[Rfam]
RNA sequence: CUAUGAUGGUAUACAUCAUGGCGGAAGGAG
Numbered sequence: 001c002u003a004u005g006a007u008g009g010u011a012u013a014c015a016u017c018a019u020g021g022c023g024g025a026a027g028g029a030g
Stems, first nucleotide, its partner, number of pairs: 001021008
This 30-nucleotide RNA sequence belongs to the Rfam family "L31-Firmicutes ribosomal protein leader". Its Rfam clan is "Ribosomal Protein L31 Leader clan". It is one of the family's seed sequences.